The record is a 113-nucleotide sequence from Ferrimonas aestuarii, which matches "Ribosomal S15 leader" in Rfam. The organism belongs to Ferrimonas, within Bacteria. From the family's description: The E. coli Ribosomal S15 gene 5' UTR can form two alternative structures. One that is a series of three hairpins, The other includes a pseudoknot.
[Rfam]
RNA sequence: CGCUGGAGCUGAAUUAGUGAUUGGCUCCGGCAUUAUUUGUAUAUCGGAGAUAGAUUAUGUCACUAAGCACUGAAGCUAAAGCAAAGAUUCUGGCUGAAUUCGGCCGUGGUGAG
Numbered sequence: 001c002g003c004u005g006g007a008g009c010u011g012a013a014u015u016a017g018u019g020a021u022u023g024g025c026u027c028c029g030g031c032a033u034u035a036u037u038u039g040u041a042u043a044u045c046g047g048a049g050a051u052a053g054a055u056u057a058u059g060u061c062a063c064u065a066a067g068c069a070c071u072g073a074a075g076c077u078a079a080a081g082c083a084a085a086g087a088u089u090c091u092g093g094c095u096g097a098a099u100u101c102g103g104c105c106g107u108g109g110u111g112a113g
Base pairs, nucleotide, nucleotide: 007026008025009024010023011022012021044066046064047063049061